[Rfam]
Description: The record is a 71-nucleotide sequence from Methylopila sp. Yamaguchi, which matches "Makes More Granules Regulator RNA (mmgR)" in Rfam. SuhB later renamed mmgR (makes more granules regulator) was a putative non-coding RNA found multiple times in the Agrobacterium tumefaciens genome and related alpha-proteobacteria. The literature on the family includes a 2016 paper in FEMS Microbiol Lett by Ceizel Borella et al., "Expression of the Sinorhizobium meliloti small RNA gene mmgR is controlled by the nitrogen source".
RNA sequence: UGGCCCAGCCCUCCUUGGGCGUUUCCUCCCUAGACUUGGGCCGGCUUCGCCGGCCCUUUUUUUUCCGGAGG
Numbered sequence: 001u002g003g004c005c006c007a008g009c010c011c012u013c014c015u016u017g018g019g020c021g022u023u024u025c026c027u028c029c030c031u032a033g034a035c036u037u038g039g040g041c042c043g044g045c046u047u048c049g050c051c052g053g054c055c056c057u058u059u060u061u062u063u064u065c066c067g068g069a070g071g
Stems, first nucleotide, its partner, number of pairs: 008020004038056008